Source information
Shown here is a 75-nucleotide RNA sequence from Centropus unirufus, a member of the family "Small nucleolar RNA SNORD47". By type it is a C/D-box small nucleolar RNA. The source organism's lineage runs through Eukaryota, Bilateria, Chordata, Neoaves and Centropus. A search with the family's covariance model found it, with a score of 58 bits. The base pairs follow the family's consensus structure, which was predicted with ILM.
RNA sequence: AGCCACUGAUGAAGUUUGAUUCUGCCAAAUGAAUUGGUGUGAUUUUACCCUUCCGUUCCAUUUCCCUCUGAGGUU
Numbered sequence: 001a002g003c004c005a006c007u008g009a010u011g012a013a014g015u016u017u018g019a020u021u022c023u024g025c026c027a028a029a030u031g032a033a034u035u036g037g038u039g040u041g042a043u044u045u046u047a048c049c050c051u052u053c054c055g056u057u058c059c060a061u062u063u064c065c066c067u068c069u070g071a072g073g074u075u
Base pairs, nucleotide, nucleotide: 001075002074003073004072